RNA sequence: GUGGUUCUUGCUUCAACAGUGUUUGAACGGAGCUUC
Numbered sequence: 001g002u003g004g005u006u007c008u009u010g011c012u013u014c015a016a017c018a019g020u021g022u023u024u025g026a027a028c029g030g031a032g033c034u035u036c
Stems, first nucleotide, its partner, number of pairs: 001036001003034006010028001012027005017021001
RNA: Iron response element I